RNA: Pseudomonas sRNA CrcZ
RNA sequence: ACAACAACAAUAAAAACCAAAGCACAUAACAAAAAUAACAUUCUACUCCACACACAAUAAAAACAAGACGUGAGAGACGCAGCAAACUGAUUUUUUUGGAGAAUAGCAGUCAGAUCGUGAGCAGGAUGCUCAGUUGGAUGAAGAAGAAUAAAAGUUGCCCAAGCAACCCGCCAUCCAGAGCCAUACGCAGGCCGAGCUGAACCUACGCUUCCAAAGCAAUCCGUUUGGUUUAGACAACCCGAGAUGGGUCAGUCGGAAAGCGGCGCUUGCCGCUUUGAACAAAAAAGAAUAGCUCUCAUAACAACAAUAAUAAAAAACCAUUAGGGGGAGUGCCCUACUCCCCUUGAGCUUUCCUUCUCCGGCAACAUCCCCCCUUUCCU
Numbered sequence: 001a002c003a004a005c006a007a008c009a010a011u012a013a014a015a016a017c018c019a020a021a022g023c024a025c026a027u028a029a030c031a032a033a034a035a036u037a038a039c040a041u042u043c044u045a046c047u048c049c050a051c052a053c054a055c056a057a058u059a060a061a062a063a064c065a066a067g068a069c070g071u072g073a074g075a076g077a078c079g080c081a082g083c084a085a086a087c088u089g090a091u092u093u094u095u096u097u098g099g100a101g102a103a104u105a106g107c108a109g110u111c112a113g114a115u116c117g118u119g120a121g122c123a124g125g126a127u128g129c130u131c132a133g134u135u136g137g138a139u140g141a142a143g144a145a146g147a148a149u150a151a152a153a154g155u156u157g158c159c160c161a162a163g164c165a166a167c168c169c170g171c172c173a174u175c176c177a178g179a180g181c182c183a184u185a186c187g188c189a190g191g192c193c194g195a196g197c198u199g200a201a202c203c204u205a206c207g208c209u210u211c212c213a214a215a216g217c218a219a220u221c222c223g224u225u226u227g228g229u230u231u232a233g234a235c236a237a238c239c240c241g242a243g244a245u246g247g248g249u250c251a252g253u254c255g256g257a258a259a260g261c262g263g264c265g266c267u268u269g270c271c272g273c274u275u276u277g278a279a280c281a282a283a284a285a286a287g288a289a290u291a292g293c294u295c296u297c298a299u300a301a302c303a304a305c306a307a308u309a310a311u312a313a314a315a316a317a318c319c320a321u322u323a324g325g326g327g328g329a330g331u332g333c334c335c336u337a338c339u340c341c342c343c344u345u346g347a348g349c350u351u352u353c354c355u356u357c358u359c360c361g362g363c364a365a366c367a368u369c370c371c372c373c374c375u376u377u378c379c380u
Stems, first nucleotide, its partner, number of pairs: 043079001046076003094216005108209003134179002137176001154167005234249001238248002270362003277293001313352003324344008